[Rfam]
RNA sequence: UUUAGAGAUAGAGGCGCGAUGCUUAGGAGUACUAUUACGGAGACAAGCACUAUGAUGUAAUAGGAAAGGAUUCAUCGCCGAAGUGAAUAGCUGAUGCUUUAAGGCUAUGUUGCUGGUUUUGCAUAGAAUAUGUGCACGACUGUCACAAUUUUUUUUGUGGAGAGCUAUCCAAAGC
Numbered sequence: 001u002u003u004a005g006a007g008a009u010a011g012a013g014g015c016g017c018g019a020u021g022c023u024u025a026g027g028a029g030u031a032c033u034a035u036u037a038c039g040g041a042g043a044c045a046a047g048c049a050c051u052a053u054g055a056u057g058u059a060a061u062a063g064g065a066a067a068g069g070a071u072u073c074a075u076c077g078c079c080g081a082a083g084u085g086a087a088u089a090g091c092u093g094a095u096g097c098u099u100u101a102a103g104g105c106u107a108u109g110u111u112g113c114u115g116g117u118u119u120u121g122c123a124u125a126g127a128a129u130a131u132g133u134g135c136a137c138g139a140c141u142g143u144c145a146c147a148a149u150u151u152u153u154u155u156u157g158u159g160g161a162g163a164g165c166u167a168u169c170c171a172a173a174g175c
Stems, first nucleotide, its partner, number of pairs: 007169005016078006024070001032063008082114005087108006115141004120136006143160006